[Rfam]
This 180-nucleotide sequence from Streptomyces armeniacus belongs to the Rfam family "c-di-AMP riboswitch aptamer (ydaO/yuaA leader)".
RNA sequence: GAGCCAACGUCACCGAACGGCAGGAGCGGGGGACCCAGGUAAGUGCCGGCCGUGCGCCACAGCACCGGACGGCUUGGGGUGAAGUCACGCGGACAGUGUGGCCACAACACACUCGUGCGUGACCGGGCAACUCCAGCCCGAACCCGACAGCUCACCUCGCAGGCGUAGGAGAGGAAGCAC
Numbered sequence: 001g002a003g004c005c006a007a008c009g010u011c012a013c014c015g016a017a018c019g020g021c022a023g024g025a026g027c028g029g030g031g032g033a034c035c036c037a038g039g040u041a042a043g044u045g046c047c048g049g050c051c052g053u054g055c056g057c058c059a060c061a062g063c064a065c066c067g068g069a070c071g072g073c074u075u076g077g078g079g080u081g082a083a084g085u086c087a088c089g090c091g092g093a094c095a096g097u098g099u100g101g102c103c104a105c106a107a108c109a110c111a112c113u114c115g116u117g118c119g120u121g122a123c124c125g126g127g128c129a130a131c132u133c134c135a136g137c138c139c140g141a142a143c144c145c146g147a148c149a150g151c152u153c154a155c156c157u158c159g160c161a162g163g164c165g166u167a168g169g170a171g172a173g174g175a176a177g178c179a180c
Stems, first nucleotide, its partner, number of pairs: 003164003010024002026160006036076005077145003085122007125139004